[Rfam]
RNA: L31-Actinobacteria ribosomal protein leader
RNA sequence: CAGGUUCCGGUUCACGCCCGGCGCGGGCGACCCGGCGACC
Numbered sequence: 001c002a003g004g005u006u007c008c009g010g011u012u013c014a015c016g017c018c019c020g021g022c023g024c025g026g027g028c029g030a031c032c033c034g035g036c037g038a039c040c
Stems, first nucleotide, its partner, number of pairs: 003040003007035004015029006
Dot-bracket structure: ..(((.((((....((((((...))))))..))))..)))